[Rfam]
COG3860 RNA: a 53-nucleotide RNA sequence from Hyphomonas sp. CY54-11-8. The base pairs follow the family's consensus structure, which is taken from published work. Lineage of the source: Bacteria > Pseudomonadati > Pseudomonadota > Alphaproteobacteria > Hyphomonas. The family's RNA type in Rfam is cis-regulatory element.

RNA sequence: CGGUCCGCAGUUCACCGAGGCGUCGCUGUCCCACCGGGAAGCUAAACCUGCAU
Numbered sequence: 001c002g003g004u005c006c007g008c009a010g011u012u013c014a015c016c017g018a019g020g021c022g023u024c025g026c027u028g029u030c031c032c033a034c035c036g037g038g039a040a041g042c043u044a045a046a047c048c049u050g051c052a053u
Stems, first nucleotide, its partner, number of pairs: 001017004029039004